This 70-nucleotide sequence from Elsinoe australis belongs to the Rfam family "bZIP non canonical Hac1/Xbp1 intron". Pairs were carried over by alignment from the consensus structure, which was predicted with RNAfold. From the family's description: bZIP intron RNA is a non-canonical intron that was first reported in HAC1 gene in yeast and XBP1 gene in Metazoa. A reference for the family is Iracane et al. (2018), "Identification of an Exceptionally Long Intron in the HAC1 Gene of Candida parapsilosis", mSphere. The family's RNA type in Rfam is small RNA.

RNA sequence: CGCUUCGCUCGACCCGACACAACAUUCUGCUGCAAUGUUGUGCGACCUGCAGUGUCGGUCGGGCGAAGCG
Numbered sequence: 001c002g003c004u005u006c007g008c009u010c011g012a013c014c015c016g017a018c019a020c021a022a023c024a025u026u027c028u029g030c031u032g033c034a035a036u037g038u039u040g041u042g043c044g045a046c047c048u049g050c051a052g053u054g055u056c057g058g059u060c061g062g063g064c065g066a067a068g069c070g
Base pairs, nucleotide, nucleotide: 001070002069003068004067005066006065007064010061011060012059013058014057021039022038023037024036025035026034044056045055046054